The family of this 51-nucleotide RNA sequence is "mcrA RNA". The sequence is in the family's curated seed alignment. Pairs were carried over by alignment from the consensus structure, which is taken from published work.
RNA sequence: AGCACUGACGAGUGUUACCGUAGAAGUAUUCAGGUCUCAUAACUACGGAUA
Numbered sequence: 001a002g003c004a005c006u007g008a009c010g011a012g013u014g015u016u017a018c019c020g021u022a023g024a025a026g027u028a029u030u031c032a033g034g035u036c037u038c039a040u041a042a043c044u045a046c047g048g049a050u051a
Base pairs, nucleotide, nucleotide: 001016002015003014004013005012006011
Rfam classes the family as a small RNA.